[Rfam]
Record summary:
A member of the RNA family "Nitrogen stress-induced RNA 9" from Nostoc sp. PCC 7120 = FACHB-418, 123 nucleotides long.
RNA sequence: AUUCACGUUUGUGACUGUGAGUGUGGCUAAUCACUAACUAGCCACUGUUGCUGAUUGUUGGGAAGGUGUAGGGAUAACUAUCAAAAGUUUUCCCUGCAUGACGGGCAUCUAUUUUAGAUGCCC
Dot-bracket structure: .....(.(((.((((.((.((((((((((.........)))))))....))).)).)))).))).)((((((((.((((......)))).))))))))....(((((((((...)))))))))
By type it is a small RNA. On this family, see Brenes-Alvarez et al., Front Microbiol 2016: "Identification of Conserved and Potentially Regulatory Small RNAs in Heterocystous Cyanobacteria". The family's consensus secondary structure was predicted with RNAalifold. Taxonomically the source falls in Nostoc (Bacteria, Bacillati, Cyanobacteriota, Cyanophyceae).